[Rfam]
RNA sequence: UAGCCGGGCGUGGUGGUGGGGGCCUGUGGUCCCAGCUACUUUGGAGGCUGAG
Numbered sequence: 001u002a003g004c005c006g007g008g009c010g011u012g013g014u015g016g017u018g019g020g021g022g023c024c025u026g027u028g029g030u031c032c033c034a035g036c037u038a039c040u041u042u043g044g045a046g047g048c049u050g051a052g
Stems, first nucleotide, its partner, number of pairs: 001050005009043002012040006019033006
Rfam assigns this 52-nucleotide RNA sequence from Homo sapiens to the family "mir-1268 microRNA precursor family". The base pairs follow the family's consensus structure, which was predicted with RNAalifold. The source organism's lineage runs through Eukaryota, Opisthokonta, Tetrapoda, Haplorrhini and Homo. Rfam links the family to the GO terms miRNA-mediated post-transcriptional gene silencing and RISC complex.